Shown here is an 87-nucleotide RNA from Enterobacter sp. 638, a member of the family "t44 RNA". Pairs were carried over by alignment from the consensus structure, which was predicted with LocARNA. From the family's description: This family consists of a number of bacterial RNA genes of between 135 and 170 bases in length. The t44 gene has been identified in several species of enteric bacteria but homologs have also been identified in Pseudomonas and Coxiella species. By type it is a small RNA. A reference for the family is Tjaden et al. (2002), "Transcriptome analysis of Escherichia coli using high-density oligonucleotide probe arrays", Nucleic Acids Res. Taxonomically the source falls in Enterobacter (Bacteria, Pseudomonadati, Pseudomonadota, Enterobacteriaceae).

[Rfam]
RNA sequence: CUCACUUUGUGUAAUUACACACACGUAUCGGCACAUAUUCCGGGGUGCCCCUAGGGGUCGGUGAUAUGGGAUACGUGGAGGCAUAAC
Number, nucleotide and partner (000 for none) at each position: 001c000002u000003c000004a000005c000006u000007u000008u000009g000010u000011g000012u000013a000014a000015u000016u000017a000018c000019a000020c000021a000022c077023a076024c075025g074026u073027a072028u071029c070030g000031g000032c000033a000034c068035a067036u066037a065038u064039u000040c061041c060042g059043g000044g000045g000046u000047g058048c057049c056050c055051c000052u000053a000054g000055g050056g049057g048058u047059c042060g041061g040062u000063g000064a038065u037066a036067u035068g034069g000070g029071a028072u027073a026074c025075g024076u023077g022078g000079a000080g000081g000082c000083a000084u000085a000086a000087c000